Rfam assigns this 65-nucleotide RNA sequence from Sitta europaea to the family "mir-8/mir-141/mir-200 microRNA precursor family". Taxonomically the source falls in Sitta (Eukaryota, Bilateria, Dinosauria, Australaves). On this family, see Lagos-Quintana et al., Science 2001: "Identification of novel genes coding for small expressed RNAs". Rfam 15.1 lists 2,669 matches to the family in 883 species.

[Rfam]
Nucleotides: 065
Base pairs, nucleotide, nucleotide: 002064003063004062005061006060007059008058009057010055011054012053013052014051015050016049017048018047019046020045022043023042024041025040026039027038
Number, partner (000 for none) and nucleotide at each position: 001000c002064c003063c004062g005061g006060c007059a008058u009057c010055u011054u012053a013052c014051c015050g016049g017048g018047c019046a020045g021000c022043a023042u024041u025040g026039g027038a028000u029000g030000g031000g032000u033000g034000c035000g036000g037000u038027u039026c040025u041024a042023a043022u044000a045020c046019u047018g048017c049016c050015u051014g052013g053012u054011a055010a056000u057009g058008a059007u060006g061005c062004u063003g064002g065000g